Shown here is a 45-nucleotide RNA from Grantiella picta, a member of the family "Histone 3' UTR stem-loop".
RNA sequence: CCAACGGCUCUUUUAAGAGCCACACACGUUUGCUUAAACGAGCUG
Number, nucleotide and partner (000 for none) at each position: 001c000002c000003a000004a000005c000006g021007g020008c019009u018010c017011u016012u000013u000014u000015a000016a011017g010018a009019g008020c007021c006022a000023c000024a000025c000026a000027c000028g000029u000030u000031u000032g000033c000034u000035u000036a000037a000038a000039c000040g000041a000042g000043c000044u000045g000
Lineage of the source: Eukaryota > Opisthokonta > Meliphagoidea > Meliphagidae > Grantiella. It is annotated as a cis-regulatory element. For this family Rfam cites "Molecular mechanisms for the regulation of histone mRNA stem-loop-binding protein by phosphorylation" (Zhang et al., Proc Natl Acad Sci U S A, 2014). The family's consensus secondary structure is taken from published work.